This 76-nucleotide RNA sequence from Saimiri boliviensis belongs to the Rfam family "mir-1290 microRNA precursor family". It scores 84 bits against the family's covariance model. The family's consensus secondary structure was predicted with RNAalifold.

[Rfam]
RNA sequence: GAGUGCCAUAUUGACACUUAAAAAGUUUCAGAUUUUGGAGCAUUUCAGAUUUUGGAUUUUUGAGUCAGGGAUGCUC
Number, nucleotide and partner (000 for none) at each position: 001g076002a075003g074004u073005g072006c000007c070008a000009u000010a000011u068012u067013g066014a065015c000016a000017c000018u063019u062020a061021a060022a059023a058024a057025g000026u000027u056028u055029c054030a053031g052032a051033u000034u049035u048036u047037g046038g045039a044040g000041c000042a000043u000044u039045u038046c037047a036048g035049a034050u000051u032052u031053u030054g029055g028056a027057u024058u023059u022060u021061u020062g019063a018064g000065u014066c013067a012068g011069g000070g007071a000072u005073g004074c003075u002076c001